The record is an 85-nucleotide RNA sequence from Ameiurus melas, which matches "mir-135 microRNA precursor family" in Rfam. The organism belongs to Ameiurus, within Eukaryota.

RNA sequence: UCACUGCUGUGUUUUAUGGCUUUCUAUUCCUAUGUGAUUUUUCUGCCAUGUCACAUAGGGUUCAAAGCCAUUGGGUACAGAGUGA
Numbered sequence: 001u002c003a004c005u006g007c008u009g010u011g012u013u014u015u016a017u018g019g020c021u022u023u024c025u026a027u028u029c030c031u032a033u034g035u036g037a038u039u040u041u042u043c044u045g046c047c048a049u050g051u052c053a054c055a056u057a058g059g060g061u062u063c064a065a066a067g068c069c070a071u072u073g074g075g076u077a078c079a080g081a082g083u084g085a
Stems, first nucleotide, its partner, number of pairs: 002084004007080008016071008026062001028060010
Notes:
The family has 88 seed sequences and 2,125 matches in Rfam 15.1. Its family is annotated with gene silencing by miRNA and RISC complex in the Gene Ontology.